[Rfam]
RNA: Molybdenum/Tungsten riboswitch aptamer (Moco RNA motif)
Organism: Geobacter metallireducens
RNA sequence: UACUAGUUUUUUCUCCGAUCCGUCAUACCUACCAGGCGCAGAGCCUCACGGUAUGCGGUCAACGGGUUCCGCUGGAAACGGCGGUGCCUCCCUUUUGGAAAGGAGAACUCUUUAUUCCCCU
Numbered sequence: 001u002a003c004u005a006g007u008u009u010u011u012u013c014u015c016c017g018a019u020c021c022g023u024c025a026u027a028c029c030u031a032c033c034a035g036g037c038g039c040a041g042a043g044c045c046u047c048a049c050g051g052u053a054u055g056c057g058g059u060c061a062a063c064g065g066g067u068u069c070c071g072c073u074g075g076a077a078a079c080g081g082c083g084g085u086g087c088c089u090c091c092c093u094u095u096u097g098g099a100a101a102g103g104a105g106a107a108c109u110c111u112u113u114a115u116u117c118c119c120c121u
Base pairs, nucleotide, nucleotide: 004114006112011107012106013105014104015103016102020058021057022056024055025054026053027052028051029050034046035045036044064089065088066087067086069084070083071082072081073080074079090098091097